RNA sequence: GGCCGGAUAAGGUAUUUACACCGCAUCCGGCAAUCGUGCGCCGAUGCCUGAUGCGCUUCGCUUAUCAGGCC
Numbered sequence: 001g002g003c004c005g006g007a008u009a010a011g012g013u014a015u016u017u018a019c020a021c022c023g024c025a026u027c028c029g030g031c032a033a034u035c036g037u038g039c040g041c042c043g044a045u046g047c048c049u050g051a052u053g054c055g056c057u058u059c060g061c062u063u064a065u066c067a068g069g070c071c
Base pairs, nucleotide, nucleotide: 002031003030004029005028006027007026008025011022012021013020046070047069048068049067050066051065052064053063055061056060
A member of the RNA family "Nucleoid-associated noncoding RNA 4 (CssrE)" from Enterobacteriaceae bacterium strain FGI 57, 71 nucleotides long. Pairs were carried over by alignment from the consensus structure, which is taken from published work. Taxonomically the source falls in Enterobacteriaceae (Bacteria, Pseudomonadati, Pseudomonadota, Enterobacterales). In E. coli small RNA transcribed from repeated extragenic palindromic element (REP325) called nucleoid-associated ncRNA 4 (nRNA4) collaborates HU protein in condensing the DNA. The secondary structure but not the sequence of the RNA is important in nucleoid condensation. Also identified in Shigella as CssrE. By type it is a small RNA.